[Rfam]
Nucleotides: 288
Stems, first nucleotide, its partner, number of pairs: 001288002004285001006283003010157004015152001017075002021071002030051002033049002036047002039044001056068002077146001080144001082142003088137001091134003095129002097124002100122003106116001162272001164271003169267007176259001184220007199208002222256001224254001229249001230247001233244001
Number, partner (000 for none) and nucleotide at each position: 001288g002287u003000c004285c005000u006283c007282g008281a009000u010157c011156u012155g013154c014000u015152g016000c017075g018074g019000g020000c021071a022070g023000a024000u025000a026000u027000a028000g029000u030051g031050g032000a033049u034048g035000u036047g037046g038000c039044u040000g041000u042000c043000g044039a045000a046037c047036c048034c049033g050031c051030c052000c053000g054000c055000c056068g057067u058000c059000a060000g061000g062000a063000u064000c065000u066000u067057g068056c069000c070022c071021u072000c073000g074018c075017c076000c077146g078000c079000g080144a081000u082142g083141g084140c085000c086000u087000c088137g089000g090000u091134g092133c093132c094000g095129g096128g097124g098123c099000c100122g101121a102120c103000g104000a105000u106116g107000a108000u109000g110000u111000c112000c113000a114000c115000g116106c117000c118000c119000g120102g121101u122100u123098g124097c125000g126000u127000a128096u129095c130000c131000g132093g133092g134091u135000u136000g137088c138000c139000c140084g141083c142082c143000u144080u145000g146077c147000c148000g149000a150000u151000c152015u153000u154013g155012u156011g157010g158000a159000u160000g161000c162272g163000a164271c165270c166269g167000u168000u169267u170266u171265u172264u173263a174262g175261g176259c177000c178000c179000a180000c181000g182000u183000c184220c185219g186218c187217c188216u189215u190214g191000u192000a193000g194000a195000u196000g197000c198000c199208g200207g201000u202000a203000u204000g205000g206000u207200c208199u209000a210000c211000g212000a213000u214190c215189a216188g217187g218186g219185c220184g221000u222256u223000g224254g225000u226000g227000a228000u229249g230247a231000c232000c233244g234000u235000a236000u237000c238000c239000a240000c241000c242000g243000c244233c245000c246000c247230u248000g249229c250000a251000g252000c253000g254224c255000g256222g257000g258000u259176g260000g261175c262174c263173u264172g265171g266170g267169a268000c269166u270165g271164g272162c273000c274000c275000a276000u277000g278000c279000c280000g281008u282007c283006g284000c285004g286000g287002a288001u